[Rfam]
RNA sequence: CAUGGAUAAGGGCAAAUCAUUUGAAAAGAUGAGACGCAAAGCUAUGGGUCUAAAGCUUAAGGCUAUGGCUGCCAGGCUGCCAAU
Numbered sequence: 001c002a003u004g005g006a007u008a009a010g011g012g013c014a015a016a017u018c019a020u021u022u023g024a025a026a027a028g029a030u031g032a033g034a035c036g037c038a039a040a041g042c043u044a045u046g047g048g049u050c051u052a053a054a055g056c057u058u059a060a061g062g063c064u065a066u067g068g069c070u071g072c073c074a075g076g077c078u079g080c081c082a083a084u
Base pairs, nucleotide, nucleotide: 012037013036017032018031019030020029021028022027040078041077042076043075045074046073047072048069049068050067055063056062057061

c-di-GMP-I riboswitch aptamer: an 84-nucleotide sequence from Desulfonispora thiosulfatigenes. It scores 79 bits against the family's covariance model. The base pairs follow the family's consensus structure, which is taken from published work. Lineage of the source: Bacteria > Clostridia > Eubacteriales > Desulfonispora > Desulfonispora thiosulfatigenes.